[Rfam]
RNA sequence: GUAGAUGCUCAUUCCCUUUCUUAUGUUCGCCAUCUGGCCUCAUAAACCCUGGAAUGAUGCAGAGCCAUUUGUGGUGCUUAUCGUCCACCUGCAGAUGUCGCAGCCUGGCUGCCUCAUCAAACAUCAUGGACACAACGUUGAGUGAAGCACCUUUUAUGUUGUCAAACAGACCUGUUUUAGUACCCGCCACUCCGGCGGGUAUUUUUUU
Numbered sequence: 001g002u003a004g005a006u007g008c009u010c011a012u013u014c015c016c017u018u019u020c021u022u023a024u025g026u027u028c029g030c031c032a033u034c035u036g037g038c039c040u041c042a043u044a045a046a047c048c049c050u051g052g053a054a055u056g057a058u059g060c061a062g063a064g065c066c067a068u069u070u071g072u073g074g075u076g077c078u079u080a081u082c083g084u085c086c087a088c089c090u091g092c093a094g095a096u097g098u099c100g101c102a103g104c105c106u107g108g109c110u111g112c113c114u115c116a117u118c119a120a121a122c123a124u125c126a127u128g129g130a131c132a133c134a135a136c137g138u139u140g141a142g143u144g145a146a147g148c149a150c151c152u153u154u155u156a157u158g159u160u161g162u163c164a165a166a167c168a169g170a171c172c173u174g175u176u177u178u179a180g181u182a183c184c185c186g187c188c189a190c191u192c193c194g195g196c197g198g199g200u201a202u203u204u205u206u207u208u
Base pairs, nucleotide, nucleotide: 001065002064006061007060008059009057010056011055012054015052017051019044027037029035073151074150075149076148077147078146079145083131084130085129086128087127094118095117096116097115161171162170163169179203180202181201182200183199184198185197186196187195188194
The family of this 208-nucleotide RNA from Jejuibacter calystegiae is "GlmZ RNA activator of glmS mRNA".
From the family's description: This RNA was discovered in E. coli during a large scale screen.
Taxonomically the source falls in Jejuibacter (Bacteria, Pseudomonadati, Pseudomonadota, Gammaproteobacteria).
Rfam classes the family as a small RNA.